[Rfam]
RNA sequence: GGGACAGACACACGUUGCGGGGCAACGAUUGUAAAAGA
Number, nucleotide and partner (000 for none) at each position: 001g000002g000003g000004a000005c031006a030007g000008a000009c000010a000011c000012a000013c027014g026015u025016u024017g023018c022019g000020g000021g000022g018023c017024a016025a015026c014027g013028a000029u000030u006031g005032u000033a000034a000035a000036a000037g000038a000
RNA: Selenocysteine insertion sequence 4
Organism: Sellimonas intestinalis